[Rfam]
RNA sequence: CUUGACCGAGCCGAGCAGCAGCGGCUCCGCGCCGCCCCGGUCCUGCCCGUACGUGGCGAGCAGCGCCUGUGCCUC
Dot-bracket structure: .............(((.......)))......(....((...((..(((....)))..))...))...)......
Numbered sequence: 001c002u003u004g005a006c007c008g009a010g011c012c013g014a015g016c017a018g019c020a021g022c023g024g025c026u027c028c029g030c031g032c033c034g035c036c037c038c039g040g041u042c043c044u045g046c047c048c049g050u051a052c053g054u055g056g057c058g059a060g061c062a063g064c065g066c067c068u069g070u071g072c073c074u075c
Stems, first nucleotide, its partner, number of pairs: 014026003033069001038065002043060002047056003
Background
Rfam assigns this 75-nucleotide RNA sequence from Micromonospora nigra to the family "ASpks TB sRNA". For this family Rfam cites "Identification of small RNAs in Mycobacterium tuberculosis" (Arnvig and Young, Mol Microbiol, 2009). Rfam classes the family as an antisense RNA. The match comes from Rfam's covariance-model search (70 bits).